The family of this 316-nucleotide sequence from Methanothrix thermoacetophila is "Archaeal signal recognition particle RNA". The organism belongs to Methanothrix thermoacetophila, within Archaea. Rfam classes the family as a non-coding RNA gene. The base pairs follow the family's consensus structure, which is taken from published work. Gene Ontology terms of the family: signal recognition particle, plasma membrane targeting and SRP-dependent cotranslational protein targeting to membrane, signal sequence recognition.

RNA sequence: UGGCGGGUUAGUCCGGGUGGUUCGGCGUCACCUGUAACCCGAAAUCGCCGAUAUGCGGGGGACAAAGCUGGUGGGCGACUUUAUGCGCCGUGUAUUCAGCCCAUCUGCGUACAAUGAUUCUCCGUUCUGUAGGGACGGCAUCGGUCAGGGAGUCAGCCGGAGGGCGGGCUCGCUGGCCCUAACUGCAGGCACCGGUUCAGGCCCGGAAGGGAGCAGACCCACUGCGGGUAACCGUCGCUUACAGGAUCGCGGGGAGGAGAAAGCAGAUGGAUCAACUGGUACGCGGUGCUUCUGGCAACCUCCAGCGCACCCGCCA
Numbered sequence: 001u002g003g004c005g006g007g008u009u010a011g012u013c014c015g016g017g018u019g020g021u022u023c024g025g026c027g028u029c030a031c032c033u034g035u036a037a038c039c040c041g042a043a044a045u046c047g048c049c050g051a052u053a054u055g056c057g058g059g060g061g062a063c064a065a066a067g068c069u070g071g072u073g074g075g076c077g078a079c080u081u082u083a084u085g086c087g088c089c090g091u092g093u094a095u096u097c098a099g100c101c102c103a104u105c106u107g108c109g110u111a112c113a114a115u116g117a118u119u120c121u122c123c124g125u126u127c128u129g130u131a132g133g134g135a136c137g138g139c140a141u142c143g144g145u146c147a148g149g150g151a152g153u154c155a156g157c158c159g160g161a162g163g164g165c166g167g168g169c170u171c172g173c174u175g176g177c178c179c180u181a182a183c184u185g186c187a188g189g190c191a192c193c194g195g196u197u198c199a200g201g202c203c204c205g206g207a208a209g210g211g212a213g214c215a216g217a218c219c220c221a222c223u224g225c226g227g228g229u230a231a232c233c234g235u236c237g238c239u240u241a242c243a244g245g246a247u248c249g250c251g252g253g254g255a256g257g258a259g260a261a262a263g264c265a266g267a268u269g270g271a272u273c274a275a276c277u278g279g280u281a282c283g284c285g286g287u288g289c290u291u292c293u294g295g296c297a298a299c300c301u302c303c304a305g306c307g308c309a310c311c312c313g314c315c316a
Stems, first nucleotide, its partner, number of pairs: 001316008011063004015033007038059004043054001067306005073300002077296001079294001084288001087287010099272001101270008110261001112259001118256008126245008134236005140229001143178006150171005156165003183227006194219004202211003